[Rfam]
RNA sequence: GGCCGCCCCACUGCAGCCCUUCGCUGGCCAGCUUUAGUUCCGGCCGAGGCGAGUAAAGCUGCCAGUUGAAGAGCUAUAGUGGGCGGC
Dot-bracket structure: ....(((..(((....(.((((...(((.(((((((.................))))))))))....)))).)....))).)))...
Numbered sequence: 001g002g003c004c005g006c007c008c009c010a011c012u013g014c015a016g017c018c019c020u021u022c023g024c025u026g027g028c029c030a031g032c033u034u035u036a037g038u039u040c041c042g043g044c045c046g047a048g049g050c051g052a053g054u055a056a057a058g059c060u061g062c063c064a065g066u067u068g069a070a071g072a073g074c075u076a077u078a079g080u081g082g083g084c085g086g087c
Stems, first nucleotide, its partner, number of pairs: 005084003010080003017073001019071004026063003030060007
mir-22 microRNA precursor family: an 87-nucleotide RNA from Petromyzon marinus. The sequence is in the family's curated seed alignment. The organism belongs to Petromyzon, within Eukaryota.